[Rfam]
RNA sequence: CCAUGGGGGAGGGGGCUGGGGGCAGCUCCAUGGAGGGAGCUGG
Numbered sequence: 001c002c003a004u005g006g007g008g009g010a011g012g013g014g015g016c017u018g019g020g021g022g023c024a025g026c027u028c029c030a031u032g033g034a035g036g037g038a039g040c041u042g043g
Stems, first nucleotide, its partner, number of pairs: 001033006
The record is a 43-nucleotide RNA sequence from Physeter macrocephalus, which matches "Prion pseudoknot" in Rfam. Rfam classes the family as a cis-regulatory element. Rfam describes the family as follows. This family represents a predicted pseudoknot structure found in prion protein mRNA. It has been suggested that the family has a possible effect in prion protein translation. Rfam links the family to the GO term translation.